[Rfam]
mir-33 microRNA precursor family: a 67-nucleotide RNA from Anguilla anguilla. The family has 73 seed sequences and 1,467 matches in Rfam 15.1. NCBI's taxonomy places the organism under Eukaryota, Opisthokonta, Craniata, Teleostomi, Anguilla.
Nucleotides: 067
Stems, first nucleotide, its partner, number of pairs: 001067004006063001007061010019049001021047007
Number, partner (000 for none) and nucleotide at each position: 001067c002066u003065g004064u005000u006063g007061u008060g009059c010058a011057u012056u013055g014054u015053a016052g017000u018000u019049g020000c021047a022046u023045u024044g025043c026042a027041u028000g029000u030000g031000u032000c033000u034000g035000u036000a037000c038000u039000g040000a041027g042026u043025g044024c045023a046022a047021u048000g049019u050000g051000u052016c053015u054014g055013c056012a057011g058010u059009g060008c061007a062000a063006c064004a065003c066002a067001g